Rfam assigns this 94-nucleotide RNA from Theobroma cacao to the family "Small nucleolar RNA snoR8a".
The base pairs follow the family's consensus structure, which was predicted with WAR.
The family's RNA type in Rfam is C/D-box small nucleolar RNA.
Lineage of the source: Eukaryota > Streptophyta > Spermatophyta > Magnoliopsida > Theobroma.
On this family, see Brown et al., RNA 2001: "Multiple snoRNA gene clusters from Arabidopsis".
Rfam 15.1 lists 956 matches to the family in 245 species.
[Rfam]
RNA sequence: CGAGUUAGCGAUGAUUAUAAAAGUAAUUCCUCAUUCUGACUUACUUAAUUUGGGCAUGACAAACUUCUUAUUACAACCAUAGAAUCUGAGCUCU
Numbered sequence: 001c002g003a004g005u006u007a008g009c010g011a012u013g014a015u016u017a018u019a020a021a022a023g024u025a026a027u028u029c030c031u032c033a034u035u036c037u038g039a040c041u042u043a044c045u046u047a048a049u050u051u052g053g054g055c056a057u058g059a060c061a062a063a064c065u066u067c068u069u070a071u072u073a074c075a076a077c078c079a080u081a082g083a084a085u086c087u088g089a090g091c092u093c094u
Stems, first nucleotide, its partner, number of pairs: 003094002007092002